[Rfam]
RNA sequence: CCCAUCACGUCUCUUUAUCACUUUUCCAGCCCAGCUUUCUGGUUCUAGCCGUUGGACGGAGAAUUGAUAAGGGUACGGGGUCGG
Numbered sequence: 001c002c003c004a005u006c007a008c009g010u011c012u013c014u015u016u017a018u019c020a021c022u023u024u025u026c027c028a029g030c031c032c033a034g035c036u037u038u039c040u041g042g043u044u045c046u047a048g049c050c051g052u053u054g055g056a057c058g059g060a061g062a063a064u065u066g067a068u069a070a071g072g073g074u075a076c077g078g079g080g081u082c083g084g
Stems, first nucleotide, its partner, number of pairs: 012073009022063006030055002
Shown here is an 84-nucleotide sequence from Ornithorhynchus anatinus, a member of the family "mir-184 microRNA precursor family". The sequence is in the family's curated seed alignment. On this family, see Chen et al., Genes Dev 2005: "The developmental miRNA profiles of zebrafish as determined by small RNA cloning". Pairs were carried over by alignment from the consensus structure, which was predicted with PFOLD. The organism belongs to Ornithorhynchus, within Eukaryota.